[Rfam]
RNA sequence: GGUUGUAAUCCCGGCAAUCUGGAGGCGUUCUGGACAGGGGUUCGAUUCCCCUCACCUCCACCCAAGUGCAUUCGGGAGUGUGCUUGGGUGGGGGUGUACCGGUUUCGACAGGGCGGGCAAAGGUGAGCAGGCAACCCGAGAGGCGACGGACGUAAUCCGCGCAAAUCCAUAAACGCCAACGAUGAGCGUUUCGCACUGGCCGCUUAA
Number, nucleotide and partner (000 for none) at each position: 001g136002g135003u134004u133005g132006u000007a000008a000009u000010c000011c000012c000013g000014g000015c125016a124017a000018u000019c000020u000021g000022g000023a000024g000025g000026c115027g114028u113029u000030c111031u110032g109033g000034a000035c000036a052037g051038g050039g049040g048041u000042u000043c000044g000045a000046u000047u000048c040049c039050c038051c037052u036053c096054a095055c094056c093057u092058c091059c090060a000061c000062c000063c000064a000065a000066g000067u000068g000069c000070a000071u000072u000073c000074g000075g000076g000077a000078g000079u000080g000081u000082g000083c000084u000085u000086g000087g000088g000089u000090g059091g058092g057093g056094g055095u054096g053097u000098a000099c000100c000101g000102g000103u000104u000105u000106c000107g000108a000109c032110a031111g030112g000113g028114c027115g026116g000117g000118c000119a000120a000121a000122g000123g000124u016125g015126a000127g000128c000129a000130g000131g000132c005133a004134a003135c002136c001137c152138g151139a000140g000141a000142g000143g000144c000145g000146a000147c000148g000149g000150a000151c138152g137153u000154a000155a000156u000157c000158c000159g000160c000161g000162c000163a000164a000165a000166u000167c000168c000169a000170u000171a000172a000173a000174c000175g000176c000177c000178a000179a000180c000181g000182a000183u000184g000185a000186g000187c000188g000189u000190u000191u000192c000193g000194c000195a000196c000197u000198g000199g000200c000201c000202g000203c000204u000205u000206a000207a000
RNA: permuted transfer-messenger RNA
Organism: Thauera aminoaromatica